Rfam assigns this 107-nucleotide RNA sequence from Rhizobium tibeticum to the family "Rhizobiales sRNA Atu_At1".
Rfam classes the family as a small RNA.
It scores 88 bits against the family's covariance model.
A reference for the family is Wilms et al. (2012), "Deep sequencing uncovers numerous small RNAs on all four replicons of the plant pathogen Agrobacterium tumefaciens", RNA Biol.
RNA sequence: UUGUGAGCCGCGCCAAGCGGACGCGGCGGCGCGAAAGAAUGCCCGGAUUUUUCCGCUUUCCCCGGGUGGCCAACGAAACGGCACUCGAGCUUUCGCCCGUCCGGUUC
Numbered sequence: 001u002u003g004u005g006a007g008c009c010g011c012g013c014c015a016a017g018c019g020g021a022c023g024c025g026g027c028g029g030c031g032c033g034a035a036a037g038a039a040u041g042c043c044c045g046g047a048u049u050u051u052u053c054c055g056c057u058u059u060c061c062c063c064g065g066g067u068g069g070c071c072a073a074c075g076a077a078a079c080g081g082c083a084c085u086c087g088a089g090c091u092u093u094c095g096c097c098c099g100u101c102c103g104g105u106u107c
Stems, first nucleotide, its partner, number of pairs: 006106004011023002014020001025101005034093004040068007069082003